This 137-nucleotide RNA sequence from Zhenhengia yiwuensis belongs to the Rfam family "Group II catalytic intron D1-D4-4".

[Rfam]
RNA sequence: UUGCAGGUGAAAGUCCUGCCUAGGUAAUCGCCAAGGAGCCUAGUAACUAAUCACCAGGCGUAGCAGAAAUGUUGGGUCUGAAGCGUGAGGGUAAUGUGUUCAUCAGAAUGCUAGUGAAAAUGCAGGUUGUAACAUUA
Numbered sequence: 001u002u003g004c005a006g007g008u009g010a011a012a013g014u015c016c017u018g019c020c021u022a023g024g025u026a027a028u029c030g031c032c033a034a035g036g037a038g039c040c041u042a043g044u045a046a047c048u049a050a051u052c053a054c055c056a057g058g059c060g061u062a063g064c065a066g067a068a069a070u071g072u073u074g075g076g077u078c079u080g081a082a083g084c085g086u087g088a089g090g091g092u093a094a095u096g097u098g099u100u101c102a103u104c105a106g107a108a109u110g111c112u113a114g115u116g117a118a119a120a121u122g123c124a125g126g127u128u129g130u131a132a133c134a135u136u137a
Stems, first nucleotide, its partner, number of pairs: 020043005051088004055080005064071002096111006114130003

Taxonomically the source falls in Zhenhengia (Bacteria, Bacillati, Clostridia, Lachnospirales). From the family's description: Group II introns are found in rRNA, tRNA and mRNA of organelles in fungi, plants and protists, and also in mRNA in bacteria. Rfam links the family to the GO term Group II intron splicing.